RNA sequence: GAUUUGUGUCCUUCAUUCCACCGGAGUCUGUUGGAACGGAUCAGAUUUCAGUGGAAUGAAGAACACGACACA
Numbered sequence: 001g002a003u004u005u006g007u008g009u010c011c012u013u014c015a016u017u018c019c020a021c022c023g024g025a026g027u028c029u030g031u032u033g034g035a036a037c038g039g040a041u042c043a044g045a046u047u048u049c050a051g052u053g054g055a056a057u058g059a060a061g062a063a064c065a066c067g068a069c070a071c072a
Stems, first nucleotide, its partner, number of pairs: 011061006019053003023049004028044003

A member of the RNA family "mir-205 microRNA precursor family" from Sinocyclocheilus rhinocerous, 72 nucleotides long. Taxonomically the source falls in Sinocyclocheilus (Eukaryota, Vertebrata, Clupeocephala, Otophysi). A reference for the family is Lim et al. (2003), "Vertebrate microRNA genes", Science.